[Rfam]
RNA sequence: GGGCGGAUGCCUUAUCUGGGGCGCUUACACAGUAAUGUUAAAGGCAAAUCUGGCUAUAUGCUGAAACCUCCGCCGAGUAUCCAAUAAUGAAUGCGUCGGUGCGGACAAUCAGCAGGGAAGGAAGUCUAAGACCGUAAAGCCUCAACGACUGCACGCCAGACAUCCCAUAUGUCUUUCCUUUCAUUUUUCUUUUCUUUGCUCAUCUUGUUUCUUCUUCUACUUCACAUGCUCAUGCUCUUAGUCAAUAGUUCUGUGACAAUAUAUAAGAUGGGAUGAUGAUACAGUCUGAACUUCCAGGCGACUGGAAG
Numbered sequence: 001g002g003g004c005g006g007a008u009g010c011c012u013u014a015u016c017u018g019g020g021g022c023g024c025u026u027a028c029a030c031a032g033u034a035a036u037g038u039u040a041a042a043g044g045c046a047a048a049u050c051u052g053g054c055u056a057u058a059u060g061c062u063g064a065a066a067c068c069u070c071c072g073c074c075g076a077g078u079a080u081c082c083a084a085u086a087a088u089g090a091a092u093g094c095g096u097c098g099g100u101g102c103g104g105a106c107a108a109u110c111a112g113c114a115g116g117g118a119a120g121g122a123a124g125u126c127u128a129a130g131a132c133c134g135u136a137a138a139g140c141c142u143c144a145a146c147g148a149c150u151g152c153a154c155g156c157c158a159g160a161c162a163u164c165c166c167a168u169a170u171g172u173c174u175u176u177c178c179u180u181u182c183a184u185u186u187u188u189c190u191u192u193u194c195u196u197u198g199c200u201c202a203u204c205u206u207g208u209u210u211c212u213u214c215u216u217c218u219a220c221u222u223c224a225c226a227u228g229c230u231c232a233u234g235c236u237c238u239u240a241g242u243c244a245a246u247a248g249u250u251c252u253g254u255g256a257c258a259a260u261a262u263a264u265a266a267g268a269u270g271g272g273a274u275g276a277u278g279a280u281a282c283a284g285u286c287u288g289a290a291c292u293u294c295c296a297g298g299c300g301a302c303u304g305g306a307a308g
Stems, first nucleotide, its partner, number of pairs: 005025001008023006029038003049160004054155001059114006069105005115141002145287001147286005163273006170266001293306005
Shown here is a 308-nucleotide RNA from Chara braunii, a member of the family "Group I catalytic intron". A reference for the family is Cech (1990), "Self-splicing of group I introns", Annu Rev Biochem. The match comes from Rfam's covariance-model search (87 bits). Group I catalytic introns are large self-splicing ribozymes. They catalyse their own excision from mRNA, tRNA and rRNA precursors in a wide range of organisms. The core secondary structure consists of 9 paired regions (P1-P9). Pairs were carried over by alignment from the consensus structure, which is taken from published work. Its family is annotated with Group I intron splicing in the Gene Ontology.